[Rfam]
RNA sequence: UGUUGUCUUGCUUUAGCAGCAUGUAAAUAUUGGAGUUACACCAAGACAAAUGUCUCCAGUAUGCUCGUGCUGCUGAAGCAAGAAGUCA
Numbered sequence: 001u002g003u004u005g006u007c008u009u010g011c012u013u014u015a016g017c018a019g020c021a022u023g024u025a026a027a028u029a030u031u032g033g034a035g036u037u038a039c040a041c042c043a044a045g046a047c048a049a050a051u052g053u054c055u056c057c058a059g060u061a062u063g064c065u066c067g068u069g070c071u072g073c074u075g076a077a078g079c080a081a082g083a084a085g086u087c088a
Base pairs, nucleotide, nucleotide: 001088002087004085006083013076014075015074016073017072018071019070020069021068022067023066027062028061029060030059031058032057033056034055035054

The record is an 88-nucleotide sequence from Ameiurus melas, which matches "mir-15 microRNA precursor family" in Rfam. The literature on the family includes a 2002 paper in Proc Natl Acad Sci U S A by Calin et al., "Frequent deletions and down-regulation of micro- RNA genes miR15 and miR16 at 13q14 in chronic lymphocytic leukemia". Gene Ontology terms of the family: RISC complex and miRNA-mediated post-transcriptional gene silencing. Lineage of the source: Eukaryota > Opisthokonta > Neopterygii > Otomorpha > Ameiurus. The family's consensus secondary structure was predicted with RNAalifold. This family represents the related mir-15a and mir-15b sequences. In humans miR-15a and miR-16 are clustered within 0.5 kb at 13q14. This region has been shown to be deleted in more than half of B cell chronic lymphocytic leukaemias (CLL).